[Rfam]
The family of this 98-nucleotide sequence from Streptosporangiaceae bacterium NEAU-GS5 is "ZMP/ZTP riboswitch aptamer (pfl RNA motif)".
The organism belongs to Streptosporangiaceae, within Bacteria.
The match comes from Rfam's covariance-model search (47 bits).
The base pairs follow the family's consensus structure, which is taken from published work.
RNA sequence: GUCGCGGGUCGUGACUGGCGCGAACGUAAGGUGGGAUGACCACCGGGGAGCGGCCCCGGCGUGAUCGCCGCACACCGCCGCGCGCCUGGGCGCCUCCC
Number, nucleotide and partner (000 for none) at each position: 001g000002u000003c059004g000005c000006g056007g055008g054009u053010c052011g051012u050013g000014a000015c047016u046017g086018g085019c084020g083021c082022g000023a000024a000025c000026g000027u000028a000029a000030g000031g043032u042033g041034g040035g000036a000037u000038g000039a000040c034041c033042a032043c031044c000045g000046g016047g015048g000049a000050g012051c011052g010053g009054c008055c007056c006057c000058g000059g003060c000061g000062u000063g000064a000065u000066c000067g000068c000069c000070g000071c000072a000073c000074a000075c000076c092077g091078c090079c089080g000081c000082g021083c020084g019085c018086c017087u000088g000089g079090g078091c077092g076093c000094c000095u000096c000097c000098c000